[Rfam]
About this RNA
This 82-nucleotide RNA sequence from Jaculus jaculus belongs to the Rfam family "mir-322 microRNA precursor family". Taxonomically the source falls in Jaculus (Eukaryota, Metazoa, Chordata, Vertebrata). For this family Rfam cites "Altered expression profiles of microRNAs during TPA-induced differentiation of HL-60 cells" (Kasashima et al., Biochem Biophys Res Commun, 2004). It scores 90 bits against the family's covariance model.
Nucleotides: 082
Base pairs, nucleotide, nucleotide: 001075002074003073004072005071006070007069009067010066013063014062015061016060017059020056021055022054023053024052025051026050027049028048029047030046031045032044
Number, partner (000 for none) and nucleotide at each position: 001075c002074g003073a004072g005071g006070g007069g008000a009067u010066g011000c012000a013063g014062c015061a016060g017059c018000a019000a020056u021055u022054c023053a024052u025051g026050u027049u028048u029047u030046g031045g032044a033000g034000u035000c036000u037000u038000g039000a040000a041000a042000u043000g044032u045031u046030c047029a048028a049027a050026a051025c052024a053023u054022g055021a056020a057000g058000c059017g060016c061015u062014g063013c064000c065000u066010c067009a068000c069007c070006c071005c072004u073003u074002c075001g076000u077000g078000g079000g080000g081000a082000a